[Rfam]
RNA sequence: ACCGAAUACGAUUUUCACAUUCGUAUAACUCCAAUAAUAUGGUUUGGAGGUCUCUACCAGGAACCAAAAAAUCCUGAUUACGAAGAAGAUACUUUCUCUU
Number, nucleotide and partner (000 for none) at each position: 001a000002c000003c000004g000005a000006a000007u000008a000009c000010g000011a000012u000013u000014u000015u000016c000017a000018c000019a000020u084021u083022c082023g081024u080025a079026u000027a000028a000029c049030u048031c047032c046033a045034a044035u000036a000037a000038u000039a000040u000041g000042g000043u000044u034045u033046g032047g031048a030049g029050g000051u000052c000053u000054c000055u000056a000057c000058c076059a075060g074061g073062a072063a000064c000065c000066a000067a000068a000069a000070a000071a000072u062073c061074c060075u059076g058077a000078u000079u025080a024081c023082g022083a021084a020085g000086a000087a000088g000089a000090u000091a000092c000093u000094u000095u000096c000097u000098c000099u000100u000